[Rfam]
RNA sequence: UUUCCGCGGGGUGUCUGAUCUAACCCUAAAUGAGGGUUUCCUCCUGUACUAAGCGUUUGCUGUUUUCUUGUUCCUGGCUUUCAGCAGAUUACAGGAGGACGUUAGCAGGAGCGUUAACAGGGGAAAAAAGCCAGGAAAUCACCCCGACGUGCUCAGCUUCCUCCCUGAAACCCCGGCGAUGUUUGCCGUGGUCAGCCCGGCUGCCACGAAGAGUUAGCCUCUGCUGCUCCGUGGGUUUUUUCCAGUGGGGGAGUCUCUGUGUCUGAGCAGAUUAAAACUGAGUGAGGUGACCCUGUCGGACCUGCUGUGGUUCGAUGUGGAAACCUGUGCUCAAACAUUC
Numbered sequence: 001u002u003u004c005c006g007c008g009g010g011g012u013g014u015c016u017g018a019u020c021u022a023a024c025c026c027u028a029a030a031u032g033a034g035g036g037u038u039u040c041c042u043c044c045u046g047u048a049c050u051a052a053g054c055g056u057u058u059g060c061u062g063u064u065u066u067c068u069u070g071u072u073c074c075u076g077g078c079u080u081u082c083a084g085c086a087g088a089u090u091a092c093a094g095g096a097g098g099a100c101g102u103u104a105g106c107a108g109g110a111g112c113g114u115u116a117a118c119a120g121g122g123g124a125a126a127a128a129a130g131c132c133a134g135g136a137a138a139u140c141a142c143c144c145c146g147a148c149g150u151g152c153u154c155a156g157c158u159u160c161c162u163c164c165c166u167g168a169a170a171c172c173c174c175g176g177c178g179a180u181g182u183u184u185g186c187c188g189u190g191g192u193c194a195g196c197c198c199g200g201c202u203g204c205c206a207c208g209a210a211g212a213g214u215u216a217g218c219c220u221c222u223g224c225u226g227c228u229c230c231g232u233g234g235g236u237u238u239u240u241u242c243c244a245g246u247g248g249g250g251g252a253g254u255c256u257c258u259g260u261g262u263c264u265g266a267g268c269a270g271a272u273u274a275a276a277a278c279u280g281a282g283u284g285a286g287g288u289g290a291c292c293c294u295g296u297c298g299g300a301c302c303u304g305c306u307g308u309g310g311u312u313c314g315a316u317g318u319g320g321a322a323a324c325c326u327g328u329g330c331u332c333a334a335a336c337a338u339u340c
Base pairs, nucleotide, nucleotide: 002147007146008145009144010143011142012141013140040098041097042096043095044094055089056088057087058086059085060084061083062082071135074134075133076132077131078130079128080127081126152267153266154265155264156263159251160250161249162248163247165245167239168238169237170236171235172234173233174231175230176229187208188207189206190205191204193203194202195201196200210222211221212220213219280332281331282330283329285326286325287324288323291320296315297314298313299312300311301310302309
This 340-nucleotide RNA from Poecilia formosa belongs to the Rfam family "Vertebrate telomerase RNA". Clan: Telomerase clan. NCBI's taxonomy places the organism under Eukaryota, Teleostomi, Atherinomorphae, Poeciliinae, Poecilia. About the family: Telomerase is a ribonucleoprotein reverse transcriptase that synthesises telomeric DNA. Telomerase RNAs differ greatly in sequence and structure between vertebrates, ciliates and yeasts, but they share a 5' pseudoknot structure close to the template sequence. Vertebrate telomerase RNAs have a 3' H/ACA snoRNA-like domain.